RNase MRP: a 268-nucleotide sequence from Certhia brachydactyla.
Lineage of the source: Eukaryota > Dipnotetrapodomorpha > Saurischia > Neoaves > Certhia.
Pairs were carried over by alignment from the consensus structure, which is taken from published work.
Its Rfam clan is "RNaseP clan".
On this family, see Schmitt et al., FASEB J 1993: "Secondary structure of RNase MRP RNA as predicted by phylogenetic comparison".
A search with the family's covariance model found it, with a score of 141 bits.
From the family's description: RNase MRP is an enzymatically active ribonucleoprotein with two distinct roles in eukaryotes. In mitochondria it plays a direct role in the initiation of mitochondrial DNA replication. In the nucleus it is involved in precursor rRNA processing, where it cleaves the internal transcribed spacer 1 between 18S and 5.8S rRNAs. Despite distinct functions, RNase MRP has been shown to be evolutionarily related to RNase P. Like eukaryotic RNase P, RNase MRP is not catalytically active without associated protein subunits.
RNA sequence: GGAUGUUCUGAAGACCUGCUCGCUAGGCUACGUACGGAGGACUUGAGUUCCUCAUGGGCCCUGCGCCCGCCUAGGGGAAAGUCCCCGGACCAGCCGGCAGAGAGUGCCGGGCGCUGCCGCGCCCCCGCCCGCCGCCGCCUCACGACACUGUCCGCCGAGACGCCCCCGGGCCGAGCGGGGGAAGGCGGGGCGGGCUCUCGUCACGGCCACAGACACGCAGGUAGCGCGGCAGGCGCGCCAACAGAACGGGGCUCACUCUCAGGCCAUC
Numbered sequence: 001g002g003a004u005g006u007u008c009u010g011a012a013g014a015c016c017u018g019c020u021c022g023c024u025a026g027g028c029u030a031c032g033u034a035c036g037g038a039g040g041a042c043u044u045g046a047g048u049u050c051c052u053c054a055u056g057g058g059c060c061c062u063g064c065g066c067c068c069g070c071c072u073a074g075g076g077g078a079a080a081g082u083c084c085c086c087g088g089a090c091c092a093g094c095c096g097g098c099a100g101a102g103a104g105u106g107c108c109g110g111g112c113g114c115u116g117c118c119g120c121g122c123c124c125c126c127g128c129c130c131g132c133c134g135c136c137g138c139c140u141c142a143c144g145a146c147a148c149u150g151u152c153c154g155c156c157g158a159g160a161c162g163c164c165c166c167c168g169g170g171c172c173g174a175g176c177g178g179g180g181g182a183a184g185g186c187g188g189g190g191c192g193g194g195c196u197c198u199c200g201u202c203a204c205g206g207c208c209a210c211a212g213a214c215a216c217g218c219a220g221g222u223a224g225c226g227c228g229g230c231a232g233g234c235g236c237g238c239c240a241a242c243a244g245a246a247c248g249g250g251g252c253u254c255a256c257u258c259u260c261a262g263g264c265c266a267u268c
Stems, first nucleotide, its partner, number of pairs: 002268004007263005014222006023074006037053005043047001080253002083251004096108004109124006126194001128192001132189002135187001138184001140182002143179001152178004162171003224238005